Shown here is a 66-nucleotide sequence from Mytilus coruscus, a member of the family "mir-33 microRNA precursor family". The match comes from Rfam's covariance-model search (71 bits). The literature on the family includes a 2009 paper in BMC Genomics by Li et al., "Direct sequencing and expression analysis of a large number of miRNAs in Aedes aegypti and a multi-species survey of novel mosquito miRNAs". Its family is annotated with RISC complex and gene silencing by miRNA in the Gene Ontology. NCBI's taxonomy places the organism under Eukaryota, Lophotrochozoa, Bivalvia, Mytilidae, Mytilus.
RNA sequence: CUGUGGUGCAUUGUAGUUGCAUUGCAUGUUUAAUAAUUUUGCAGUGCUUCUGCAGUGCAACCAUAG
Number, nucleotide and partner (000 for none) at each position: 001c066002u065003g064004u063005g000006g062007u059008g058009c057010a056011u055012u054013g053014u052015a051016g050017u000018u000019g047020c000021a045022u044023u043024g042025c041026a040027u000028g000029u000030u000031u000032a000033a000034u000035a000036a000037u000038u000039u000040u026041g025042c024043a023044g022045u021046g000047c019048u000049u000050c016051u015052g014053c013054a012055g011056u010057g009058c008059a007060a000061c000062c006063a004064u003065a002066g001